[Rfam]
RNA sequence: AUGUAAGAUGAAAUAACUUUGCAAUCUUUGACCAGAAAAUCGGUCGUAGUCCGAUUAUAUCAUUGUGUCUGAUUAUAUGCAAUAUUUAAGAACCUGGUACAACUGUCCAGGUUCUUUUUGGU
Numbered sequence: 001a002u003g004u005a006a007g008a009u010g011a012a013a014u015a016a017c018u019u020u021g022c023a024a025u026c027u028u029u030g031a032c033c034a035g036a037a038a039a040u041c042g043g044u045c046g047u048a049g050u051c052c053g054a055u056u057a058u059a060u061c062a063u064u065g066u067g068u069c070u071g072a073u074u075a076u077a078u079g080c081a082a083u084a085u086u087u088a089a090g091a092a093c094c095u096g097g098u099a100c101a102a103c104u105g106u107c108c109a110g111g112u113u114c115u116u117u118u119u120g121g122u
Stems, first nucleotide, its partner, number of pairs: 036076001038074004042068001045065002088116010

A member of the RNA family "Bacillus sRNA ncr1015" from Paenibacillus sp. OAS669, 122 nucleotides long. For this family Rfam cites "Identification of regulatory RNAs in Bacillus subtilis" (Irnov et al., Nucleic Acids Res, 2010). It scores 97 bits against the family's covariance model.